This 166-nucleotide part of an RNA from Fusarium agapanthi belongs to the Rfam family "Ascomycota telomerase RNA". The organism belongs to Fusarium fujikuroi species complex, within Eukaryota. By type it is a non-coding RNA gene. For this family Rfam cites "The common ancestral core of vertebrate and fungal telomerase RNAs" (Qi et al., Nucleic Acids Res, 2013). Rfam 15.1 lists 475 matches to the family in 456 species. Its family is annotated with telomerase catalytic core complex, telomere maintenance via telomerase and telomerase activity in the Gene Ontology.

Nucleotides: 166
Base pairs, nucleotide, nucleotide: 007030008029011025012024014023015022016021035066036063038061039060040059042057043056047052084160085159086158087155088154090153091152092151093150094149109145110144111142112141113140114139120133121132122131123130124129
Number, partner (000 for none) and nucleotide at each position: 001000c002000a003000a004000g005000c006000c007030u008029g009000c010000a011025a012024g013000g014023a015022u016021c017000a018000g019000a020000a021016g022015g023014u024012c025011u026000g027000a028000a029008c030007a031000g032000g033000u034000c035066c036063c037000c038061c039060a040059g041000a042057u043056c044000c045000g046000c047052c048000g049000a050000a051000a052047g053000g054000u055000u056043g057042a058000a059040c060039u061038g062000a063036g064000a065000u066035g067000a068000a069000a070000g071000g072000g073000u074000g075000g076000u077000u078000u079000u080000u081000a082000u083000g084160g085159a086158u087155g088154u089000c090153u091152u092151u093150u094149g095000u096000c097000c098000a099000c100000c101000c102000g103000u104000c105000a106000a107000a108000g109145c110144c111142c112141u113140c114139c115000a116000u117000a118000c119000c120133u121132c122131u123130c124129g125000c126000u127000g128000g129124c130123g131122a132121g133120a134000a135000a136000u137000u138000u139114g140113g141112a142111g143000a144110g145109g146000a147000a148000u149094c150093a151092a152091a153090a154088a155087c156000u157000a158086g159085u160084c161000c162000u163000a164000g165000u166000u